Rfam assigns this 69-nucleotide RNA from Amycolatopsis sp. CA-230715 to the family "ASpks TB sRNA".
For this family Rfam cites "Identification of small RNAs in Mycobacterium tuberculosis" (Arnvig and Young, Mol Microbiol, 2009).
RNA sequence: CUUGACCGAACCGAGCAGGAGCGGCUCCUCGCGGUCCUGGCCGUAGGUCGCGAGCACCGCCUGCGCCUC
Numbered sequence: 001c002u003u004g005a006c007c008g009a010a011c012c013g014a015g016c017a018g019g020a021g022c023g024g025c026u027c028c029u030c031g032c033g034g035u036c037c038u039g040g041c042c043g044u045a046g047g048u049c050g051c052g053a054g055c056a057c058c059g060c061c062u063g064c065g066c067c068u069c
Stems, first nucleotide, its partner, number of pairs: 014026003028065001030063001032059002037054002041050001043048001